Record summary:
This 104-nucleotide sequence from Neobacillus massiliamazoniensis belongs to the Rfam family "Purine riboswitch aptamer".

RNA sequence: AUAAUCAUAAAUAUCAUUACUCGUAUAUGCUCGGUAAUAUGGUCUGAGUGUCUCUACCUGGUUCCCAAUGAAAGAACUAGACUACGAGUUAAAGUAUUCGGCUG
Number, nucleotide and partner (000 for none) at each position: 001a000002u000003a000004a000005u000006c000007a000008u000009a000010a000011a000012u000013a000014u000015c000016a000017u000018u000019a089020c088021u087022c086023g085024u084025a083026u000027a000028u000029g049030c048031u047032c046033g045034g044035u000036a000037a000038u000039a000040u000041g000042g000043u000044c034045u033046g032047a031048g030049u029050g000051u000052c000053u000054c000055u000056a000057c000058c080059u079060g078061g077062u076063u075064c074065c000066c000067a000068a000069u000070g000071a000072a000073a000074g064075a063076a062077c061078u060079a059080g058081a000082c000083u025084a024085c023086g022087a021088g020089u019090u000091a000092a000093a000094g000095u000096a000097u000098u000099c000100g000101g000102c000103u000104g000

Description: The organism belongs to Neobacillus, within Bacteria. The base pairs follow the family's consensus structure, which is taken from published work.